[Rfam]
RNA sequence: UGAAGGUGUCGCAACUGGCGUUGGGUGGGGUGAACCACCGGGGAGCGACACAAGCAGUUAACCACGGACCGCGCGCCUGGGCCCGGGGG
Numbered sequence: 001u002g003a004a005g006g007u008g009u010c011g012c013a014a015c016u017g018g019c020g021u022u023g024g025g026u027g028g029g030g031u032g033a034a035c036c037a038c039c040g041g042g043g044a045g046c047g048a049c050a051c052a053a054g055c056a057g058u059u060a061a062c063c064a065c066g067g068a069c070c071g072c073g074c075g076c077c078u079g080g081g082c083c084c085g086g087g088g089g
Stems, first nucleotide, its partner, number of pairs: 006051007015042002017077005025038004066084002069081002
RNA: ZMP/ZTP riboswitch aptamer (pfl RNA motif)
Organism: Arthrobacter sp. MYb227